[Rfam]
RNA sequence: GUGCCAUGAUGUCGACUGUCAACACAUCAUUCUGAAGAACAAUUGUGUGGAGACCUUCUUGAAACUGAGCACC
Numbered sequence: 001g002u003g004c005c006a007u008g009a010u011g012u013c014g015a016c017u018g019u020c021a022a023c024a025c026a027u028c029a030u031u032c033u034g035a036a037g038a039a040c041a042a043u044u045g046u047g048u049g050g051a052g053a054c055c056u057u058c059u060u061g062a063a064a065c066u067g068a069g070c071a072c073c
Stems, first nucleotide, its partner, number of pairs: 001072004
RNA: Small nucleolar RNA SNORD63